[Rfam]
RNA sequence: CUUUAAAAAUCUGGAUCAAGCUGAAAAUCGAAACACUGAACAACGAAAGUUGUUCGUGAGUCUCUCAAACUUUCGCAACACGAUGAUGAGUCGAAAGGGACAUCUUCGG
Numbered sequence: 001c002u003u004u005a006a007a008a009a010u011c012u013g014g015a016u017c018a019a020g021c022u023g024a025a026a027a028u029c030g031a032a033a034c035a036c037u038g039a040a041c042a043a044c045g046a047a048a049g050u051u052g053u054u055c056g057u058g059a060g061u062c063u064c065u066c067a068a069a070c071u072u073u074c075g076c077a078a079c080a081c082g083a084u085g086a087u088g089a090g091u092c093g094a095a096a097g098g099g100a101c102a103u104c105u106u107c108g109g
Stems, first nucleotide, its partner, number of pairs: 020076002023074004028069001034058003038055007081108003085104004

A member of the RNA family "Salmonella enterica Typhi npcRNA 44" from Shigella flexneri, 109 nucleotides long. Rfam 15.1 lists 474 matches to the family in 137 species. The organism belongs to Shigella, within Bacteria. Rfam's curators put it in the seed alignment. It is annotated as a non-coding RNA gene. The base pairs follow the family's consensus structure, which was predicted with CMfinder.